Source information
Rfam assigns this 127-nucleotide RNA sequence from Cicer arietinum to the family "Small nucleolar RNA SNORA69". Taxonomically the source falls in Cicer (Eukaryota, Euphyllophyta, Gunneridae, Pentapetalae). The family's consensus secondary structure was predicted with PFOLD.
[Rfam]
Nucleotides: 127
Stems, first nucleotide, its partner, number of pairs: 003052006016039009064123009074113001080107012
Number, partner (000 for none) and nucleotide at each position: 001000u002000g003052g004051g005050u006049g007048g008047g009000c010000a011000u012000u013000u014000u015000a016039c017038a018037g019036c020035g021034c022033u023032u024031u025000u026000u027000u028000g029000a030000g031024a032023a033022a034021g035020c036019g037018c038017u039016g040000u041000a042000a043000a044000a045000u046000u047008c048007c049006c050005a051004c052003c053000c054000a055000u056000a057000a058000u059000u060000u061000c062000a063000u064123a065122u066121a067120u068119g069118g070117g071116u072115g073000g074113g075000c076000a077000u078000u079000u080107u081106a082105c083104a084103g085102c086101g087100c088099u089098u090097u091096u092000u093000c094000g095000a096091g097090a098089a099088a100087g101086c102085g103084u104083u105082g106081u107080a108000a109000u110000a111000u112000g113074c114000a115072c116071a117070c118069c119068c120067a121066u122065a123064u124000a125000u126000g127000a

Its family is annotated with RNA processing and nucleolus in the Gene Ontology. U69 is a member of the H/ACA class of small nucleolar RNAs (snoRNAs) which act as guides in the the modification of uridines to pseudouridines. It is annotated as an H/ACA-box small nucleolar RNA.